[Rfam]
Annotation
A member of the RNA family "Plastid-psbA-1 3UTR RNA", 118 nucleotides long. The family's consensus secondary structure was predicted with LocARNA. The sequence is in the family's curated seed alignment. The literature on the family includes a 2023 paper in Plant Commun by Richter et al., "Retrograde signaling in plants: A critical review focusing on the GUN pathway and beyond". By type it is a cis-regulatory element.
RNA sequence: CUCCAACAAAUGGCUAAAACUUGUUCUUGGUGUGUAGAAGUUUUUGAAAUAUAGAUAAAUAUAAGGAGCAAUAAACCCUUUCUUGUUCUAUCAAAAGAGGGUUUAUUGCUCCUUUCUU
Numbered sequence: 001c002u003c004c005a006a007c008a009a010a011u012g013g014c015u016a017a018a019a020c021u022u023g024u025u026c027u028u029g030g031u032g033u034g035u036a037g038a039a040g041u042u043u044u045u046g047a048a049a050u051a052u053a054g055a056u057a058a059a060u061a062u063a064a065g066g067a068g069c070a071a072u073a074a075a076c077c078c079u080u081u082c083u084u085g086u087u088c089u090a091u092c093a094a095a096a097g098a099g100g101g102u103u104u105a106u107u108g109c110u111c112c113u114u115u116c117u118u
Base pairs, nucleotide, nucleotide: 051115063114064113065112066111067110068109069108070107071106072105073104074103076101077100078099080097081096083094084093